Nucleotides: 187
Stems, first nucleotide, its partner, number of pairs: 006182006016080009032064007084114011115141002118138008144171008
Number, partner (000 for none) and nucleotide at each position: 001000u002000u003000g004000u005000g006182a007181g008180g009179u010178a011177g012000a013000g014000g015000c016080g017079c018078g019077a020076u021075a022074u023073u024072u025000a026000u027000u028000a029000g030000u031000a032064a033063g034062u035061a036060g037059c038058g039000g040000a041000g042000u043000a044000c045000g046000a047000g048000a049000a050000u051000a052000c053000a054000a055000a056000g057000a058038u059037g060036c061035u062034a063033c064032u065000u066000a067000g068000a069000a070000g071000g072024a073023g074022a075021u076020g077019u078018c079017g080016c081000c082000g083000a084114a085113g086112u087111g088110u089109a090108u091107g092106g093105u094104g095000g096000g097000u098000u099000c100000u101000c102000a103000a104094c105093a106092u107091c108090a109089u110088a111087u112086g113085c114084u115141g116140g117000g118138u119137c120136u121135g122134c123133a124132a125131u126000u127000a128000a129000u130000a131125g132124u133123u134122g135121c136120a137119g138118g139000a140116c141115u142000g143000u144171c145170u146169u147168a148167c149166u150165u151164u152000u153000u154000u155000u156000a157000c158000c159000c160000g161000a162000a163000u164151a165150a166149a167148g168147u169146a170145a171144g172000u173000u174000g175000a176000g177011c178010u179009a180008u181007c182006u183000c184000a185000a186000u187000u
A member of the RNA family "Lysine riboswitch aptamer" from Kurthia sp. 11kri321, 187 nucleotides long. Rfam describes the family as follows. Riboswitches are metabolite binding domains within certain messenger RNAs that serve as precision sensors for their corresponding targets.